[Rfam]
RNA: ffh sRNA
RNA sequence: UUUUGGGGGGAUCGCCACCAGUCAGCGCGUUGCGCCCACUGGUGCCAAACCC
Numbered sequence: 001u002u003u004u005g006g007g008g009g010g011a012u013c014g015c016c017a018c019c020a021g022u023c024a025g026c027g028c029g030u031u032g033c034g035c036c037c038a039c040u041g042g043u044g045c046c047a048a049a050c051c052c
Base pairs, nucleotide, nucleotide: 016044017043018042019041020040021039022038025035026034027033028032